[Rfam]
RNA sequence: AGCACCCAGGGAUCUUGUUAAAAUGCAGAUUCUGUUUCAGCAAGUCUAGGAUGGAGCCUUCGAUUCUGCAUUUCUAACAAGUUCCCAGAUGAUGCUUG
Numbered sequence: 001a002g003c004a005c006c007c008a009g010g011g012a013u014c015u016u017g018u019u020a021a022a023a024u025g026c027a028g029a030u031u032c033u034g035u036u037u038c039a040g041c042a043a044g045u046c047u048a049g050g051a052u053g054g055a056g057c058c059u060u061c062g063a064u065u066c067u068g069c070a071u072u073u074c075u076a077a078c079a080a081g082u083u084c085c086c087a088g089a090u091g092a093u094g095c096u097u098g
Stems, first nucleotide, its partner, number of pairs: 003091002009085003014081007021073003025069005031063002

Shown here is a 98-nucleotide RNA sequence from Theropithecus gelada, a member of the family "mir-544 microRNA precursor family". Its family is annotated with miRNA-mediated post-transcriptional gene silencing and RISC complex in the Gene Ontology. The literature on the family includes a 2010 paper in Genes Dev by Chiang et al., "Mammalian microRNAs: experimental evaluation of novel and previously annotated genes".